RNA sequence: GCCGCUGCGCGGCGGACAUGGGCAGGCAAAUCUGCGACUUGAGGAACACAAACCGCAUAUGAGGCUACAUCCGCCGGGCGAGUUAGCGCCCAACAACGAAGCCCUGUGCAAUCAAAGUGGAUGGAGUAGAUGCGGCAAGGCUGCAGAGAAAGUCAGCGUU
Numbered sequence: 001g002c003c004g005c006u007g008c009g010c011g012g013c014g015g016a017c018a019u020g021g022g023c024a025g026g027c028a029a030a031u032c033u034g035c036g037a038c039u040u041g042a043g044g045a046a047c048a049c050a051a052a053c054c055g056c057a058u059a060u061g062a063g064g065c066u067a068c069a070u071c072c073g074c075c076g077g078g079c080g081a082g083u084u085a086g087c088g089c090c091c092a093a094c095a096a097c098g099a100a101g102c103c104c105u106g107u108g109c110a111a112u113c114a115a116a117g118u119g120g121a122u123g124g125a126g127u128a129g130a131u132g133c134g135g136c137a138a139g140g141c142u143g144c145a146g147a148g149a150a151a152g153u154c155a156g157c158g159u160u
Base pairs, nucleotide, nucleotide: 020159022157023156026153027152031147032146033145034144035143036142038139039138040137041136053135054134055133056132057131058130064127065126066125068123069122070121071120072119073118074117076104077103078102079101082097083096084095
Dot-bracket structure: ...................(.((..((...((((((.((((...........((((((.....(((.(((((((.((((..(((..........)))...))))............))))))).)))..))))))))))..))))))....))..)).).
The record is a 160-nucleotide sequence from a Thermoflexales bacterium, which matches "Group II catalytic intron D1-D4-3" in Rfam. Rfam describes the family as follows. Group II introns are found in rRNA, tRNA and mRNA of organelles in fungi, plants and protists, and also in mRNA in bacteria. Taxonomically the source falls in Thermoflexales (Bacteria, Bacillati, Chloroflexota, Thermoflexia). The base pairs follow the family's consensus structure.